mir-1000 microRNA precursor family: a 68-nucleotide sequence from Operophtera brumata. A search with the family's covariance model found it, with a score of 62 bits. Its family is annotated with RISC complex, negative regulation of glutamate secretion, neurotransmission and miRNA-mediated post-transcriptional gene silencing in the Gene Ontology. Pairs were carried over by alignment from the consensus structure, which was predicted with RNAalifold. The organism belongs to Operophtera, within Eukaryota.
RNA sequence: CGCGGCCAUAUUGUCCUGUCACAGCAGUACGUUGACUCCUACUGCUGCGGCCGGACAAACCGGUCGCG
Numbered sequence: 001c002g003c004g005g006c007c008a009u010a011u012u013g014u015c016c017u018g019u020c021a022c023a024g025c026a027g028u029a030c031g032u033u034g035a036c037u038c039c040u041a042c043u044g045c046u047g048c049g050g051c052c053g054g055a056c057a058a059a060c061c062g063g064u065c066g067c068g
Stems, first nucleotide, its partner, number of pairs: 003066004012057005018051001022047008